[Rfam]
RNA: DUF805 RNA
Organism: Chitinophaga niastensis
RNA sequence: CGUAAGUGGAGCAGCGACCACUGUAAAAACGGGCGGAACCGAAAAGCCAGACGAGUAGGAAACGA
Numbered sequence: 001c002g003u004a005a006g007u008g009g010a011g012c013a014g015c016g017a018c019c020a021c022u023g024u025a026a027a028a029a030c031g032g033g034c035g036g037a038a039c040c041g042a043a044a045a046g047c048c049a050g051a052c053g054a055g056u057a058g059g060a061a062a063c064g065a
Base pairs, nucleotide, nucleotide: 006021007020008019009018032048033047034046039059040058